[Rfam]
Shown here is a 207-nucleotide RNA from Scardovia wiggsiae, a member of the family "Lysine riboswitch aptamer". From the family's description: Riboswitches are metabolite binding domains within certain messenger RNAs that serve as precision sensors for their corresponding targets. Allosteric rearrangement of mRNA structure is mediated by ligand binding, and this results in modulation of gene expression. This family includes riboswitches that sense lysine in a number of genes involved in lysine metabolism, including lysC. The organism belongs to Scardovia wiggsiae, within Bacteria.
RNA sequence: CCCAUCGACCAGAGGUCGCGUUUGACAUCAGUACCUGUUUGGAGCUGAAAAGCAGCAACGAUAAACAGCGAAAGGGGAAAACGCCGAAGCGUACGGCCGCUUUUUCAGCCGUACGCUGGGCUUUGAUCCAAAAGGUCAAAGACUGUCGUAGUUUAUACGGUUUCUGCACUGCAGAGGCCCGGACAGCUACGGAGCGCUAUCGAGAUC
Numbered sequence: 001c002c003c004a005u006c007g008a009c010c011a012g013a014g015g016u017c018g019c020g021u022u023u024g025a026c027a028u029c030a031g032u033a034c035c036u037g038u039u040u041g042g043a044g045c046u047g048a049a050a051a052g053c054a055g056c057a058a059c060g061a062u063a064a065a066c067a068g069c070g071a072a073a074g075g076g077g078a079a080a081a082c083g084c085c086g087a088a089g090c091g092u093a094c095g096g097c098c099g100c101u102u103u104u105u106c107a108g109c110c111g112u113a114c115g116c117u118g119g120g121c122u123u124u125g126a127u128c129c130a131a132a133a134g135g136u137c138a139a140a141g142a143c144u145g146u147c148g149u150a151g152u153u154u155a156u157a158c159g160g161u162u163u164c165u166g167c168a169c170u171g172c173a174g175a176g177g178c179c180c181g182g183a184c185a186g187c188u189a190c191g192g193a194g195c196g197c198u199a200u201c202g203a204g205a206u207c
Base pairs, nucleotide, nucleotide: 006202007201008200011198012197018084019083020082021081022080023079026076035068036067037066038065039064040063041062088117089116090115091114092113093112094111095110096109097108099106118144119143121141122140123139124138125137126136127135128134146192147191148190149189150188151187152186